[Rfam]
RNA sequence: ACAGAAUUCCCCGGAGAAGGACUCCGGGAAAAUAGAAUAAAAAUGCAAUUAAGAUAUAUAGGCAUGAACGAAUAUGUUUCAUA
Numbered sequence: 001a002c003a004g005a006a007u008u009c010c011c012c013g014g015a016g017a018a019g020g021a022c023u024c025c026g027g028g029a030a031a032a033u034a035g036a037a038u039a040a041a042a043a044u045g046c047a048a049u050u051a052a053g054a055u056a057u058a059u060a061g062g063c064a065u066g067a068a069c070g071a072a073u074a075u076g077u078u079u080c081a082u083a
Stems, first nucleotide, its partner, number of pairs: 007030002010028007066079004

Rfam assigns this 83-nucleotide RNA sequence from Musa balbisiana to the family "Plastid-rpl20 3UTR RNA". Pairs were carried over by alignment from the consensus structure, which was predicted with LocARNA. On this family, see Richter et al., Plant Commun 2023: "Retrograde signaling in plants: A critical review focusing on the GUN pathway and beyond". The match comes from Rfam's covariance-model search (59 bits). Rfam classes the family as a cis-regulatory element. Rfam's curators write: Plastid rpl20 is a non-coding RNA (ncRNA) recognised in plastids. It was found in the three prime untranslated region (3UTR) of rpl20 gene, it presence in the 3UTR region sugest a role in transcript maduration.